[Rfam]
Nucleotides: 135
Base pairs, nucleotide, nucleotide: 001059002058003057004056007050008049011045012044013043014042015041016040017039019036020035021034022033023032071127073125074124075123076122077121078120083117084116085114086113087112088111090109091107093105094104095103
Number, partner (000 for none) and nucleotide at each position: 001059g002058c003057c004056u005000g006000g007050u008049g009000g010000u011045u012044c013043c014042u015041a016040u017039a018000g019036u020035c021034a022033g023032c024000u025000c026000c027000a028000a029000a030000g031000u032023g033022c034021u035020g036019a037000a038000c039017u040016g041015u042014g043013g044012g045011g046000u047000u048000u049008u050007g051000u052000a053000g054000a055000c056004a057003g058002g059001c060000a061000a062000a063000u064000a065000g066000u067000g068000a069000u070000u071127c072000u073125g074124c075123a076122g077121u078120u079000u080000u081000a082000u083117g084116c085114a086113u087112g088111g089000a090109a091107g092000c093105u094104g095103c096000c097000a098000c099000u100000a101000u102000a103095g104094c105093a106000a107091c108000u109090u110000u111088c112087c113086a114085u115000a116084g117083c118000c119000c120078g121077g122076u123075u124074g125073c126000a127071g128000a129000g130000a131000c132000a133000u134000u135000u